[Rfam]
The family of this 46-nucleotide RNA from Kolteria novifilia is "Acido-Lenti-1 RNA". The family's consensus secondary structure is taken from published work. Taxonomically the source falls in Kolteria (Bacteria, Pseudomonadati, Planctomycetota, Planctomycetia). Rfam classes the family as a small RNA.
RNA sequence: CCAGGGGUUGCCACCCCUGGCUACUUUCCUCUGCCGCUUCGCGGCU
Numbered sequence: 001c002c003a004g005g006g007g008u009u010g011c012c013a014c015c016c017c018u019g020g021c022u023a024c025u026u027u028c029c030u031c032u033g034c035c036g037c038u039u040c041g042c043g044g045c046u
Base pairs, nucleotide, nucleotide: 001020002019003018004017005016006015007014008013033045034044035043036042037041